[Rfam]
RNA sequence: CAAAUAAGAGAAACGAAACCUCAUAUAAUAUUCAGGAAUAUGGCCUGAGAGUUUCUACCCAAUAACCGUAAAUUAUUGGACUAUGAGGAAAGAACAAUCAAUU
Numbered sequence: 001c002a003a004a005u006a007a008g009a010g011a012a013a014c015g016a017a018a019c020c021u022c023a024u025a026u027a028a029u030a031u032u033c034a035g036g037a038a039u040a041u042g043g044c045c046u047g048a049g050a051g052u053u054u055c056u057a058c059c060c061a062a063u064a065a066c067c068g069u070a071a072a073u074u075a076u077u078g079g080a081c082u083a084u085g086a087g088g089a090a091a092g093a094a095c096a097a098u099c100a101a102u103u
Stems, first nucleotide, its partner, number of pairs: 019088007029050001031049006059079007
This 103-nucleotide RNA sequence from Priestia veravalensis belongs to the Rfam family "Purine riboswitch aptamer". A search with the family's covariance model found it, with a score of 85 bits.